[Rfam]
RNA: Guanidine-II riboswitch aptamer (mini-ykkC)
RNA sequence: CCACCGGGACGACCCGGUGCGCAAUUUCGUUUGGGGACGGCCCCG
Numbered sequence: 001c002c003a004c005c006g007g008g009a010c011g012a013c014c015c016g017g018u019g020c021g022c023a024a025u026u027u028c029g030u031u032u033g034g035g036g037a038c039g040g041c042c043c044c045g
Base pairs, nucleotide, nucleotide: 002019003018004017005016006015007014008013032045033044034043035042036041